[Rfam]
RNA sequence: UGCCCUGCCACUUGGCAAAAUAUAAAAAUUAUUUGAACUGUUUUGGUAAAUCCUGCAAAGGAAGUUGAAGAAUCAGUUUGAAGUGCAUACAA
Numbered sequence: 001u002g003c004c005c006u007g008c009c010a011c012u013u014g015g016c017a018a019a020a021u022a023u024a025a026a027a028a029u030u031a032u033u034u035g036a037a038c039u040g041u042u043u044u045g046g047u048a049a050a051u052c053c054u055g056c057a058a059a060g061g062a063a064g065u066u067g068a069a070g071a072a073u074c075a076g077u078u079u080g081a082a083g084u085g086c087a088u089a090c091a092a
Stems, first nucleotide, its partner, number of pairs: 006017004042072002049066001052061003

A member of the RNA family "RT-17 RNA", 92 nucleotides long. The sequence is in the family's curated seed alignment. The family's consensus secondary structure is taken from published work.